[Rfam]
RNA: RAGATH-22 RNA
RNA sequence: CUGAGAGUGUCCGAGAGGCCUCUCAGUCUCUAAUUAUAGCUAUAUGCUGUAGUUAGAGAUUAAUGCCACGAUUUAUUUAUCCGAAUUAAUAGUAGGAAAAAUUACUCUGAAUUAACAGAGUACUCAAGAGCCUUGAGCCAGAGUGGAAAAUUCUGAGCCACUGAUCA
Numbered sequence: 001c002u003g004a005g006a007g008u009g010u011c012c013g014a015g016a017g018g019c020c021u022c023u024c025a026g027u028c029u030c031u032a033a034u035u036a037u038a039g040c041u042a043u044a045u046g047c048u049g050u051a052g053u054u055a056g057a058g059a060u061u062a063a064u065g066c067c068a069c070g071a072u073u074u075a076u077u078u079a080u081c082c083g084a085a086u087u088a089a090u091a092g093u094a095g096g097a098a099a100a101a102u103u104a105c106u107c108u109g110a111a112u113u114a115a116c117a118g119a120g121u122a123c124u125c126a127a128g129a130g131c132c133u134u135g136a137g138c139c140a141g142a143g144u145g146g147a148a149a150a151u152u153c154u155g156a157g158c159c160a161c162u163g164a165u166c167a
Stems, first nucleotide, its partner, number of pairs: 001026007011018002027059008036050005080097003103122007137158002139155003143151002